Description:
MIR2606 microRNA precursor family: a 164-nucleotide sequence from Medicago truncatula. Rfam 15.1 lists 227 matches to the family in 3 species. The family's consensus secondary structure was predicted with RNAalifold. Lineage of the source: Eukaryota > Embryophyta > Pentapetalae > Fabaceae > Medicago.
RNA sequence: AAAACUUAGGUACAAUUUCUUAGGUGCUUUUCGUAUGGUUCUUAGCUAAAAAUACAUUUUUUUUUUAUAUAAUAAACUUUGAGAAAAUUAUGGAUUUGAGGAAAUCAUAAUGAAUUUAGUUAAGAACCAUACGAAAAGCACCUAUGAAAUUAUACCUAAAUUUU
Numbered sequence: 001a002a003a004a005c006u007u008a009g010g011u012a013c014a015a016u017u018u019c020u021u022a023g024g025u026g027c028u029u030u031u032c033g034u035a036u037g038g039u040u041c042u043u044a045g046c047u048a049a050a051a052a053u054a055c056a057u058u059u060u061u062u063u064u065u066u067a068u069a070u071a072a073u074a075a076a077c078u079u080u081g082a083g084a085a086a087a088u089u090a091u092g093g094a095u096u097u098g099a100g101g102a103a104a105u106c107a108u109a110a111u112g113a114a115u116u117u118a119g120u121u122a123a124g125a126a127c128c129a130u131a132c133g134a135a136a137a138g139c140a141c142c143u144a145u146g147a148a149a150u151u152a153u154a155c156c157u158a159a160a161u162u163u164u
Stems, first nucleotide, its partner, number of pairs: 002163003006159003010155003015150005021144005027138017045120006